Shown here is a 97-nucleotide RNA from Propithecus coquereli, a member of the family "Y RNA". Y RNAs are components of the Ro ribonucleoprotein particle (Ro RNP), in association with Ro60 and La proteins. The Y RNAs and Ro60 and La proteins are well conserved, but the function of the Ro RNP is not known. In humans the RNA component can be one of four small RNAs -- hY1, hY3, hY4 and hY5. The organism belongs to Propithecus, within Eukaryota. The family's RNA type in Rfam is non-coding RNA gene. A reference for the family is Teunissen et al. (2000), "Conserved features of Y RNAs: a comparison of experimentally derived secondary structures", Nucleic Acids Res. The family has 104 seed sequences and 26,986 matches in Rfam 15.1.
[Rfam]
RNA sequence: GGCUGGUCGGAUGUUAGUGGGCCAUCAAAACUUAUUAACAUUAGUGUCACUCAAAGGUGGUAUUCAACCCCCCACUGCUAAGUUUGACUGAGUUCAA
Numbered sequence: 001g002g003c004u005g006g007u008c009g010g011a012u013g014u015u016a017g018u019g020g021g022c023c024a025u026c027a028a029a030a031c032u033u034a035u036u037a038a039c040a041u042u043a044g045u046g047u048c049a050c051u052c053a054a055a056g057g058u059g060g061u062a063u064u065c066a067a068c069c070c071c072c073c074a075c076u077g078c079u080a081a082g083u084u085u086g087a088c089u090g091a092g093u094u095c096a097a
Stems, first nucleotide, its partner, number of pairs: 001094004005089004010085002014081002016076006027061001030058004